[Rfam]
RNA sequence: GGGUGCUUGAGACUUUCUGUCUUAAGCAUUAUGUUUCAGGCAGAAAGAGAAAAGCCCCAUCCGACUAUAAAUCGAAAUGAGGCUACCCCUAUGCCUAGCAACGUAAGGCUAGCCUCUUACCUGAUAAAAAGCAAGGAGAGAAGGCUAUGAAG
Numbered sequence: 001g002g003g004u005g006c007u008u009g010a011g012a013c014u015u016u017c018u019g020u021c022u023u024a025a026g027c028a029u030u031a032u033g034u035u036u037c038a039g040g041c042a043g044a045a046a047g048a049g050a051a052a053a054g055c056c057c058c059a060u061c062c063g064a065c066u067a068u069a070a071a072u073c074g075a076a077a078u079g080a081g082g083c084u085a086c087c088c089c090u091a092u093g094c095c096u097a098g099c100a101a102c103g104u105a106a107g108g109c110u111a112g113c114c115u116c117u118u119a120c121c122u123g124a125u126a127a128a129a130a131g132c133a134a135g136g137a138g139a140g141a142a143g144g145c146u147a148u149g150a151a152g
Base pairs, nucleotide, nucleotide: 001058002057003056005055006054007053008052013047014046015045016044017043018042019041020040021039022038026034027033059078060077063073064072066070079116080115081114082113083112085110087108088107090105091104092103093102120144121143122142125139

The family of this 152-nucleotide RNA sequence from Photorhabdus laumondii is "sok antitoxin (CssrC)". NCBI's taxonomy places the organism under Bacteria, Pseudomonadota, Morganellaceae, Photorhabdus, Photorhabdus laumondii subsp. laumondii. The family's RNA type in Rfam is antitoxin RNA. The family has 91 seed sequences and 305 matches in Rfam 15.1. From the family's description: Also identified in Shigella as CssrC. Rfam's curators put it in the seed alignment. Its family is annotated with mRNA binding in the Gene Ontology. The base pairs follow the family's consensus structure, which is taken from published work.